[Rfam]
Shown here is a 589-nucleotide part of an RNA from Clostridium sp. KNHs216, a member of the family "Bacterial small subunit ribosomal RNA".
Clan: SSU clan.
Taxonomically the source falls in Clostridium (Bacteria, Bacillota, Eubacteriales, Clostridiaceae).
Its family is annotated with structural constituent of ribosome and ribosome in the Gene Ontology.

RNA sequence: AUUUUAGAGAGUUUGAUCCUGGCUCAGGACGAACGCUGGCGGCGUGCCUAACACAUGCAAGUCGAACGGAAUUAAGUUUAACACCGAACACUUUGUUUGGUGGGGACGCCUUACCGAGUGGUGGGUGUUGAGCUUAAUUUAGUGGCGGACGGGUGAGUAACGCGUGAGUAACCUGCCUUUCAGAGGGGGAUAACGUCUGGAAACGGACGCUAAUACCGCAUGACAUAUUUGGGCUGCAUGGUCUGAAUAUCAAAGGAGCAAUCCGCUGAAAGAUGGACUCGCGUCCGAUUAGCUAGUUGGUGAGAUAAAGGCCCACCAAGGCGACGAUCGGUAGCCGGACUGAGAGGUUGAACGGCCACAUUGGGACUGAGACACGGCCCAGACUCCUACGGGAGGCAGCAGUGGGGGAUAUUGCACAAUGGAGGAAACUCUGAUGCAGCAACGCCGCGUGAGGGAAGACGGUUUUCGGAUUGUAAACCUCUGUCCUUGGUGACGAAACAAAUGACGGUAGCCAAGGAGGAAGCUCCGGCUAACUACGUGCCAGCAGCCGCGGUAAUACGUAGGGAGCAAGCGUUGUCCGGAUUUACUG
Numbered sequence: 001a002u003u004u005u006a007g008a009g010a011g012u013u014u015g016a017u018c019c020u021g022g023c024u025c026a027g028g029a030c031g032a033a034c035g036c037u038g039g040c041g042g043c044g045u046g047c048c049u050a051a052c053a054c055a056u057g058c059a060a061g062u063c064g065a066a067c068g069g070a071a072u073u074a075a076g077u078u079u080a081a082c083a084c085c086g087a088a089c090a091c092u093u094u095g096u097u098u099g100g101u102g103g104g105g106a107c108g109c110c111u112u113a114c115c116g117a118g119u120g121g122u123g124g125g126u127g128u129u130g131a132g133c134u135u136a137a138u139u140u141a142g143u144g145g146c147g148g149a150c151g152g153g154u155g156a157g158u159a160a161c162g163c164g165u166g167a168g169u170a171a172c173c174u175g176c177c178u179u180u181c182a183g184a185g186g187g188g189g190a191u192a193a194c195g196u197c198u199g200g201a202a203a204c205g206g207a208c209g210c211u212a213a214u215a216c217c218g219c220a221u222g223a224c225a226u227a228u229u230u231g232g233g234c235u236g237c238a239u240g241g242u243c244u245g246a247a248u249a250u251c252a253a254a255g256g257a258g259c260a261a262u263c264c265g266c267u268g269a270a271a272g273a274u275g276g277a278c279u280c281g282c283g284u285c286c287g288a289u290u291a292g293c294u295a296g297u298u299g300g301u302g303a304g305a306u307a308a309a310g311g312c313c314c315a316c317c318a319a320g321g322c323g324a325c326g327a328u329c330g331g332u333a334g335c336c337g338g339a340c341u342g343a344g345a346g347g348u349u350g351a352a353c354g355g356c357c358a359c360a361u362u363g364g365g366a367c368u369g370a371g372a373c374a375c376g377g378c379c380c381a382g383a384c385u386c387c388u389a390c391g392g393g394a395g396g397c398a399g400c401a402g403u404g405g406g407g408g409a410u411a412u413u414g415c416a417c418a419a420u421g422g423a424g425g426a427a428a429c430u431c432u433g434a435u436g437c438a439g440c441a442a443c444g445c446c447g448c449g450u451g452a453g454g455g456a457a458g459a460c461g462g463u464u465u466u467c468g469g470a471u472u473g474u475a476a477a478c479c480u481c482u483g484u485c486c487u488u489g490g491u492g493a494c495g496a497a498a499c500a501a502a503u504g505a506c507g508g509u510a511g512c513c514a515a516g517g518a519g520g521a522a523g524c525u526c527c528g529g530c531u532a533a534c535u536a537c538g539u540g541c542c543a544g545c546a547g548c549c550g551c552g553g554u555a556a557u558a559c560g561u562a563g564g565g566a567g568c569a570a571g572c573g574u575u576g577u578c579c580g581g582a583u584u585u586a587c588u589g
Base pairs, nucleotide, nucleotide: 009025010024011023012022013021027579028578029577030576032575033574034573035572036571037570039448040447041446042445043444044443045441046440047406052404053403054402056401057400058399061146062145063144066143067142069140070139072137073136074135075134076133077132078131079130080129081128082127083126084125085124153359154358155357162284163283164282165281166280167279168278169277172276173275177272178271179270180269181268182267183266185219187217188216194209195208196207197206198205199204225250226249227248228247229246230245231244233242234241235240255264256263257262285331286330287329292322293321294320297319298318299317300316301315302314304312334356335355336354337353338349339348340347341346361382362381363380364379365378384395385394386393387392412438414437415436416435420433421432422431423430424429451481452480453479454478461472462471463470464469485520486516487515488514489513490512491511495506523568524567525566526565527564534563535562536561537560538559544551545550
It scores 1577 bits against the family's covariance model.